[Rfam]
RNA sequence: GGUCGCAAAUUCAAGGCCAUAGCAGAAGCACUCAGCGCAGCCUGUCGGAUUCCAACAAAAUCUGUGAGUUCUGCU
Numbered sequence: 001g002g003u004c005g006c007a008a009a010u011u012c013a014a015g016g017c018c019a020u021a022g023c024a025g026a027a028g029c030a031c032u033c034a035g036c037g038c039a040g041c042c043u044g045u046c047g048g049a050u051u052c053c054a055a056c057a058a059a060a061u062c063u064g065u066g067a068g069u070u071c072u073g074c075u
Stems, first nucleotide, its partner, number of pairs: 015042003021075007028038002046064006
Mammalian CPEB3 ribozyme: a 75-nucleotide RNA from Alligator mississippiensis. Rfam links the family to the GO term RNA nuclease activity. The match comes from Rfam's covariance-model search (36 bits). The source organism's lineage runs through Eukaryota, Bilateria, Amniota, Sauria and Alligator. The base pairs follow the family's consensus structure, which is taken from published work.